[Rfam]
The family of this 76-nucleotide RNA from Trichechus manatus is "mir-660 microRNA precursor family".
Rfam links the family to the GO terms miRNA-mediated post-transcriptional gene silencing and RISC complex.

RNA sequence: UUCUUCUCCCAUACCCAUUGCAUAUCGGAGUUGUAAUUUCUCAAAACACCUCCUGUGUGCAUGGAUUACAGGAGGA
Numbered sequence: 001u002u003c004u005u006c007u008c009c010c011a012u013a014c015c016c017a018u019u020g021c022a023u024a025u026c027g028g029a030g031u032u033g034u035a036a037u038u039u040c041u042c043a044a045a046a047c048a049c050c051u052c053c054u055g056u057g058u059g060c061a062u063g064g065a066u067u068a069c070a071g072g073a074g075g076a
Stems, first nucleotide, its partner, number of pairs: 002075006015064004020060006027053004032048003